[Rfam]
RNA sequence: GGUAAGUUUCAGGGAAGGUGAAAUUCCUUAUUGGCGGUAGCGACCUGCUGAUUUUAUAACGGCAGCAAAGUCGAAGCCCGCGAACUGCGAAAGCGGUCGAUCCGGUGAGAUUCCGGAGCCAACGGUUACAGUCCGGAUGAAAGAAACGAGGC
Numbered sequence: 001g002g003u004a005a006g007u008u009u010c011a012g013g014g015a016a017g018g019u020g021a022a023a024u025u026c027c028u029u030a031u032u033g034g035c036g037g038u039a040g041c042g043a044c045c046u047g048c049u050g051a052u053u054u055u056a057u058a059a060c061g062g063c064a065g066c067a068a069a070g071u072c073g074a075a076g077c078c079c080g081c082g083a084a085c086u087g088c089g090a091a092a093g094c095g096g097u098c099g100a101u102c103c104g105g106u107g108a109g110a111u112u113c114c115g116g117a118g119c120c121a122a123c124g125g126u127u128a129c130a131g132u133c134c135g136g137a138u139g140a141a142a143g144a145a146a147c148g149a150g151g152c
Base pairs, nucleotide, nucleotide: 003150006147007146008145009144010143016028017027018026030132031131032121033120034081035080036079037078076119077118084097085096086095101117102116103115104114105113123135124134125133
This 152-nucleotide RNA sequence from Bifidobacterium commune belongs to the Rfam family "FMN riboswitch aptamer (RFN element)". The source organism's lineage runs through Bacteria, Actinomycetes, Bifidobacteriales, Bifidobacteriaceae and Bifidobacterium. The base pairs follow the family's consensus structure, which is taken from published work. The RFN element is a highly conserved domain that is found frequently in the 5'-untranslated regions of prokaryotic mRNAs that encode for flavin mononucleotide (FMN) biosynthesis and transport proteins. Gene Ontology term of the family: FMN binding.